[Rfam]
RNA sequence: AAAAAGUUUCCCGACUUAGUGCAAAUCUAAACCGGAAGUUAUAGUCUUCGUACUUUCACAAGAACGAUUAGGUGAAAUUCCUAAACCGACAGUAUAGUCUGAAUAAAGAAACAAGUA
Numbered sequence: 001a002a003a004a005a006g007u008u009u010c011c012c013g014a015c016u017u018a019g020u021g022c023a024a025a026u027c028u029a030a031a032c033c034g035g036a037a038g039u040u041a042u043a044g045u046c047u048u049c050g051u052a053c054u055u056u057c058a059c060a061a062g063a064a065c066g067a068u069u070a071g072g073u074g075a076a077a078u079u080c081c082u083a084a085a086c087c088g089a090c091a092g093u094a095u096a097g098u099c100u101g102a103a104u105a106a107a108g109a110a111a112c113a114a115g116u117a
Stems, first nucleotide, its partner, number of pairs: 006112005017029003031098002033088002035049004044086002054062001068084005090101003

FMN riboswitch aptamer (RFN element): a 117-nucleotide RNA from Mycoplasmopsis columboralis. The source organism's lineage runs through Bacteria, Bacillati, Mycoplasmatota, Metamycoplasmataceae and Mycoplasmopsis.